A member of the RNA family "TPP riboswitch aptamer (THI element)" from Pollutimonas thiosulfatoxidans, 109 nucleotides long. It scores 78 bits against the family's covariance model.
[Rfam]
RNA sequence: ACUUGUUCCUGGGGGAGCCCGAUGUGGGCUGAGACUCUGCAUAGCAUUGCAGUAACCCUUAGAACCUGAUCCGGAUCAUGCCGGCGAAGGGAAGGAAACGCAUCAUUCC
Numbered sequence: 001a002c003u004u005g006u007u008c009c010u011g012g013g014g015g016a017g018c019c020c021g022a023u024g025u026g027g028g029c030u031g032a033g034a035c036u037c038u039g040c041a042u043a044g045c046a047u048u049g050c051a052g053u054a055a056c057c058c059u060u061a062g063a064a065c066c067u068g069a070u071c072c073g074g075a076u077c078a079u080g081c082c083g084g085c086g087a088a089g090g091g092a093a094g095g096a097a098a099c100g101c102a103u104c105a106u107u108c109c
Base pairs, nucleotide, nucleotide: 006097007096008095009094010093011059012058013057014056016053017029018028019027020026021025037052038051039050040049065090066089067088071084072083073082074081
The base pairs follow the family's consensus structure, which is taken from published work.